Rfam assigns this 46-nucleotide RNA sequence from Pipistrellus kuhlii to the family "Prion pseudoknot".
It scores 48 bits against the family's covariance model.
It is annotated as a cis-regulatory element.
For this family Rfam cites "Pseudoknots in prion protein mRNAs confirmed by comparative sequence analysis and pattern searching" (Barrette et al., Nucleic Acids Res, 2001).
The base pairs follow the family's consensus structure, which is taken from published work.
RNA sequence: CCAUGGUGGCGGGUGGGGUCAGCCCCAUGGUGGUGGAGGAGGUUGG
Number, nucleotide and partner (000 for none) at each position: 001c030002c029003a028004u027005g026006g025007u000008g000009g000010c000011g000012g000013g000014u000015g000016g000017g000018g000019u000020c000021a000022g000023c000024c000025c006026c005027a004028u003029g002030g001031u000032g000033g000034u000035g000036g000037a000038g000039g000040a000041g000042g000043u000044u000045g000046g000